[Rfam]
RNA sequence: AGAGGUAAAUUGAUUUAGACUUUGACUCGGCUAGAAAGAAAGUUUUUUGUUUAUAUACAUUUCGUUGGAUUACUUGUAACUCAACCUCCGUGUUAUACGCAAUAGCAGCUACUUUUCCACGCUAUCGGCGCCAUAAUCGGCCAAACACAUAAAUAUAUUUAGGAUUUAACUAUGUCUAACACAGUUACUGGUACAGUAAAAUGGUUCAACGAAACUAAAGGCUUCGGCUUCAUUCAACAAGAAAACGGCCCAGACGUUUUCGCUCACUUCUCUGCAAUCACUGGCGACGGUUUCAAAACGCUAAUCGAAGGUCAGAAAGUUGAGUUCACUGUAUCUCAAGGUCAAAAAGGCCCUCAAGCUGACAGCAUUAAAGUACUUUAAUUCGUACUCUAAUUAUUCUAAAUAGCUGGCUAUAUGCUGGCUAUUUUUU
Numbered sequence: 001a002g003a004g005g006u007a008a009a010u011u012g013a014u015u016u017a018g019a020c021u022u023u024g025a026c027u028c029g030g031c032u033a034g035a036a037a038g039a040a041a042g043u044u045u046u047u048u049g050u051u052u053a054u055a056u057a058c059a060u061u062u063c064g065u066u067g068g069a070u071u072a073c074u075u076g077u078a079a080c081u082c083a084a085c086c087u088c089c090g091u092g093u094u095a096u097a098c099g100c101a102a103u104a105g106c107a108g109c110u111a112c113u114u115u116u117c118c119a120c121g122c123u124a125u126c127g128g129c130g131c132c133a134u135a136a137u138c139g140g141c142c143a144a145a146c147a148c149a150u151a152a153a154u155a156u157a158u159u160u161a162g163g164a165u166u167u168a169a170c171u172a173u174g175u176c177u178a179a180c181a182c183a184g185u186u187a188c189u190g191g192u193a194c195a196g197u198a199a200a201a202u203g204g205u206u207c208a209a210c211g212a213a214a215c216u217a218a219a220g221g222c223u224u225c226g227g228c229u230u231c232a233u234u235c236a237a238c239a240a241g242a243a244a245a246c247g248g249c250c251c252a253g254a255c256g257u258u259u260u261c262g263c264u265c266a267c268u269u270c271u272c273u274g275c276a277a278u279c280a281c282u283g284g285c286g287a288c289g290g291u292u293u294c295a296a297a298a299c300g301c302u303a304a305u306c307g308a309a310g311g312u313c314a315g316a317a318a319g320u321u322g323a324g325u326u327c328a329c330u331g332u333a334u335c336u337c338a339a340g341g342u343c344a345a346a347a348a349g350g351c352c353c354u355c356a357a358g359c360u361g362a363c364a365g366c367a368u369u370a371a372a373g374u375a376c377u378u379u380a381a382u383u384c385g386u387a388c389u390c391u392a393a394u395u396a397u398u399c400u401a402a403a404u405a406g407c408u409g410g411c412u413a414u415a416u417g418c419u420g421g422c423u424a425u426u427u428u429u430u
Stems, first nucleotide, its partner, number of pairs: 001011002021240002027237001029235002038230001041229004045221002050219002057216001060214002063211009075174004081168001088162001090160001091157003099118001101116002130141003176191003243334001245332004253261002264322001266320004271316004275311001277305002280302001282300001286299001339354003356378003359373002382393002385390001401427011

This 430-nucleotide RNA from Vibrio genomosp. F6 belongs to the Rfam family "cspA thermoregulator". Rfam links the family to the GO terms regulation of translation and response to temperature stimulus. The literature on the family includes a 2010 paper in Mol Cell by Giuliodori et al., "The cspA mRNA is a thermosensor that modulates translation of the cold-shock protein CspA". NCBI's taxonomy places the organism under Bacteria, Pseudomonadota, Vibrionaceae, Vibrio, Vibrio genomosp. F6. Pairs were carried over by alignment from the consensus structure, which is taken from published work.